[Rfam]
RNA sequence: UGCCAUGUUGGUCAGCAAAAAGACACAACUUUGCAGUGUGUCCGAAUUGAAAAAACGUGGCUAGAAGAGUAACAGGUUCUGCUUUCCUCGCUGUAAAGUUAGUUGCAGUGGUGACAAUGAGACCUGUAACAGGU
Dot-bracket structure: .(((.(((.............(((((...........)))))............))).)))..........(((((.........(.((((................)))).).........))))).......
RNA: Small nucleolar RNA SNORA1
Organism: Falco tinnunculus